[Rfam]
RNA sequence: GCCGAGCUUGGCAACGCGAGCUUGUAACCCGAGUGGGGGCAUUAAGGUGGUGGGACGUGGUCUUGGGAUCCUUGGGUCGGGCAUCGAUUGGCAACCAUCUGGCCCGCCCGUUCCAAGCCGGGAGUUGGCCCAUGCGGCCCGUGCGAAGGCUCGGGCCUCGUGCGGCACUAGAGUGGAGGGGACAGCGUGAGGCUGGCUUCACAGAGCAGCGAAAGCCUCCCGCUCUCGGCAGUGGAAGGAUAACGGGCCGGCGCCGGUGAGGCCCAUAAACGGCUCAAAGGACAAGUUCUACUGGACCACCACCUUU
Numbered sequence: 001g002c003c004g005a006g007c008u009u010g011g012c013a014a015c016g017c018g019a020g021c022u023u024g025u026a027a028c029c030c031g032a033g034u035g036g037g038g039g040c041a042u043u044a045a046g047g048u049g050g051u052g053g054g055a056c057g058u059g060g061u062c063u064u065g066g067g068a069u070c071c072u073u074g075g076g077u078c079g080g081g082c083a084u085c086g087a088u089u090g091g092c093a094a095c096c097a098u099c100u101g102g103c104c105c106g107c108c109c110g111u112u113c114c115a116a117g118c119c120g121g122g123a124g125u126u127g128g129c130c131c132a133u134g135c136g137g138c139c140c141g142u143g144c145g146a147a148g149g150c151u152c153g154g155g156c157c158u159c160g161u162g163c164g165g166c167a168c169u170a171g172a173g174u175g176g177a178g179g180g181g182a183c184a185g186c187g188u189g190a191g192g193c194u195g196g197c198u199u200c201a202c203a204g205a206g207c208a209g210c211g212a213a214a215g216c217c218u219c220c221c222g223c224u225c226u227c228g229g230c231a232g233u234g235g236a237a238g239g240a241u242a243a244c245g246g247g248c249c250g251g252c253g254c255c256g257g258u259g260a261g262g263c264c265c266a267u268a269a270a271c272g273g274c275u276c277a278a279a280g281g282a283c284a285a286g287u288u289c290u291a292c293u294g295g296a297c298c299a300c301c302a303c304c305u306u307u
Base pairs, nucleotide, nucleotide: 001040002039003038004023005022006021007020008019009018010017028037029036030035044306045305046304047303048302049301050300051299052298053297056294057293058291059290060289062286063285064284065283069281070280072278073277074276075275076274077273078272079265080264081263082262084260085259086258089256090255091254099251100250101249102248103247104246105245106244108239109238111237112236113235114234115233117230118229119228120227121226122225123224124223125222128166129165130164131162132161133160134159136157137156138155139154140153141152143150144149168173175220176219177218178217179216186211187210188209193204194203195202